Shown here is a 175-nucleotide RNA sequence from a Nannocystaceae bacterium, a member of the family "6S / SsrS RNA".
About the family: E. coli 6S RNA was the first non coding RNA to be sequenced, but its function was unknown until recently.
The source organism's lineage runs through Bacteria, Pseudomonadati, Polyangia, Nannocystales and Nannocystaceae.
Rfam classes the family as a non-coding RNA gene.
[Rfam]
RNA sequence: AUCGGUCGGCCGCGCGUUCGGCAAUCUAGUUCUACCUACUCCAUUCAACCCGGGAGCCGCCUCUGUCCGCGGGUGUGCAAGCCCGUUCGGCGGGAAGCCCGAUGCGGUUACCGUGGCACCCACCUGAGAAGGUAGGGGUUGAACUGGAAACGCCGGGCGCGCGUGCCGACCUUUU
Numbered sequence: 001a002u003c004g005g006u007c008g009g010c011c012g013c014g015c016g017u018u019c020g021g022c023a024a025u026c027u028a029g030u031u032c033u034a035c036c037u038a039c040u041c042c043a044u045u046c047a048a049c050c051c052g053g054g055a056g057c058c059g060c061c062u063c064u065g066u067c068c069g070c071g072g073g074u075g076u077g078c079a080a081g082c083c084c085g086u087u088c089g090g091c092g093g094g095a096a097g098c099c100c101g102a103u104g105c106g107g108u109u110a111c112c113g114u115g116g117c118a119c120c121c122a123c124c125u126g127a128g129a130a131g132g133u134a135g136g137g138g139u140u141g142a143a144c145u146g147g148a149a150a151c152g153c154c155g156g157g158c159g160c161g162c163g164u165g166c167c168g169a170c171c172u173u174u175u
Base pairs, nucleotide, nucleotide: 004171005170006169007168008167009166010165012162013161014160015159026147027146028145029144031142032141034139035138036137052121053120054119056117057116058115059114060113065109067107068106069105070104071103077098078097082094083093084092085091